[Rfam]
RNA: MIR7486 microRNA precursor family
Organism: Gossypium mustelinum
RNA sequence: CACGUCAGCGUGCUUUGCUGACGUGGUAGAAAAUCGCGUCCAUGUAAGCGCGGUUUGUGUCCACGUCAUCAAAGUGCGCUGACGUGG
Number, nucleotide and partner (000 for none) at each position: 001c086002a085003c084004g083005u082006c081007a080008g079009c078010g077011u076012g075013c074014u073015u072016u071017g070018c000019u068020g067021a066022c000023g064024u063025g062026g061027u000028a000029g058030a000031a056032a055033a054034u053035c052036g051037c050038g049039u000040c000041c000042a000043u000044g000045u000046a000047a000048g000049c038050g037051c036052g035053g034054u033055u032056u031057g000058u029059g000060u000061c026062c025063a024064c023065g000066u021067c020068a019069u000070c017071a016072a015073a014074g013075u012076g011077c010078g009079c008080u007081g006082a005083c004084g003085u002086g001087g000